[Rfam]
Small nucleolar RNA SNORA68: a 132-nucleotide RNA from Orycteropus afer. It is annotated as an H/ACA-box small nucleolar RNA. The family's consensus secondary structure was predicted with PFOLD. Taxonomically the source falls in Orycteropus afer (Eukaryota, Eumetazoa, Gnathostomata, Eutheria). Rfam describes the family as follows. U68 is a member of the H/ACA class of small nucleolar RNAs (snoRNAs) which act as guides in the the modification of uridines to pseudouridines.
RNA sequence: CUUGCACCCAAACCCAAGAACCGCGGUUUCUGGUAGCAGUGGUUCAAACAGAGGUGCACACAGCAAAUGGACCUGGUCGCCUUUGGGAGGCUGUACUGUGCCCCUCAGAGUGAAUGUGGAGGUUCUACACCC
Numbered sequence: 001c002u003u004g005c006a007c008c009c010a011a012a013c014c015c016a017a018g019a020a021c022c023g024c025g026g027u028u029u030c031u032g033g034u035a036g037c038a039g040u041g042g043u044u045c046a047a048a049c050a051g052a053g054g055u056g057c058a059c060a061c062a063g064c065a066a067a068u069g070g071a072c073c074u075g076g077u078c079g080c081c082u083u084u085g086g087g088a089g090g091c092u093g094u095a096c097u098g099u100g101c102c103c104c105u106c107a108g109a110g111u112g113a114a115u116g117u118g119g120a121g122g123u124u125c126u127a128c129a130c131c132c
Stems, first nucleotide, its partner, number of pairs: 003058006019044006026037003069125006081110007089102003